[Rfam]
Nucleotides: 248
Stems, first nucleotide, its partner, number of pairs: 004237006015154004020149001031110003035106003064103005157168004
Number, partner (000 for none) and nucleotide at each position: 001000c002000g003000c004237c005236a006235g007234c008233c009232g010000a011000g012000a013000c014000a015154g016153c017152a018151c019000a020149g021000a022000c023000c024000a025000g026000c027000c028000u029000g030000a031110c032109u033108a034000a035106g036105g037104c038000u039000u040000u041000u042000c043000g044000c045000g046000a047000g048000g049000g050000u051000a052000a053000g054000g055000g056000g057000u058000a059000a060000a061000c062000g063000u064103c065102g066101c067100g068099g069000c070000c071000u072000g073000c074000c075000u076000u077000u078000c079000a080000g081000a082000g083000c084000u085000g086000c087000c088000c089000u090000g091000c092000g093000c094000c095000u096000u097000g098000c099068u100067c101066g102065u103064g104037g105036c106035u107000c108033u109032g110031g111000g112000u113000c114000c115000c116000u117000g118000c119000c120000g121000c122000c123000c124000u125000c126000a127000c128000a129000c130000c131000g132000g133000u134000g135000a136000c137000c138000u139000c140000g141000c142000u143000a144000c145000g146000c147000u148000c149020c150000c151018g152017u153016g154015c155000u156000g157168c158167g159166g160165c161000c162000g163000a164000g165160g166159c167158c168157g169000g170000a171000u172000u173000g174000c175000c176000u177000g178000c179000g180000a181000c182000g183000u184000c185000c186000u187000g188000c189000c190000u191000g192000c193000c194000c195000g196000g197000u198000g199000a200000c201000c202000c203000a204000c205000u206000g207000g208000c209000c210000g211000g212000c213000a214000a215000g216000a217000u218000g219000g220000a221000g222000c223000u224000c225000u226000c227000c228000c229000u230000g231000g232009u233008g234007g235006c236005u237004g238000c239000g240000a241000u242000g243000c244000u245000g246000c247000u248000g